[Rfam]
RNA: c-di-GMP-I riboswitch aptamer
RNA sequence: CAAAAACAAAACCAAACCGAUUGUAAGGUCGGGACGGAAAGUCACGGGUCCUAUUUCACGGGAAAGCCGGGCUGCCGCA
Numbered sequence: 001c002a003a004a005a006a007c008a009a010a011a012c013c014a015a016a017c018c019g020a021u022u023g024u025a026a027g028g029u030c031g032g033g034a035c036g037g038a039a040a041g042u043c044a045c046g047g048g049u050c051c052u053a054u055u056u057c058a059c060g061g062g063a064a065a066g067c068c069g070g071g072c073u074g075c076c077g078c079a
Base pairs, nucleotide, nucleotide: 012037013036017032018031019030020029021028022027040073041072042071043070045069046068047067049063050062051061052060054058